[Rfam]
RNA sequence: UGACAGGCUUUCCACAGACAUGUUUGAAGAUUAGCAUGUUGUUUUUAGACUGUCAUACAUUAAAGAAAGCAUUGCUUCACCCAGUUUGUUUAGAUCUUAUCAAGGUGAUAGGAGGUAACAGACUGGGAUUUGUGGGUGCUUACAUAU
Numbered sequence: 001u002g003a004c005a006g007g008c009u010u011u012c013c014a015c016a017g018a019c020a021u022g023u024u025u026g027a028a029g030a031u032u033a034g035c036a037u038g039u040u041g042u043u044u045u046u047a048g049a050c051u052g053u054c055a056u057a058c059a060u061u062a063a064a065g066a067a068a069g070c071a072u073u074g075c076u077u078c079a080c081c082c083a084g085u086u087u088g089u090u091u092a093g094a095u096c097u098u099a100u101c102a103a104g105g106u107g108a109u110a111g112g113a114g115g116u117a118a119c120a121g122a123c124u125g126g127g128a129u130u131u132g133u134g135g136g137u138g139c140u141u142a143c144a145u146a147u
Stems, first nucleotide, its partner, number of pairs: 001055006008048001014042003018039002021036004069139005081126010095113005
Overview: Shown here is a 147-nucleotide RNA from Biomphalaria glabrata, a member of the family "Small nucleolar RNA SNORA79". It scores 67 bits against the family's covariance model. The family has 25 seed sequences and 944 matches in Rfam 15.1. ACA65 (SNORA79) is a member of the H/ACA class of snoRNAs that guide the sites of modification of uridines to pseudouridines. Rfam classes the family as an H/ACA-box small nucleolar RNA.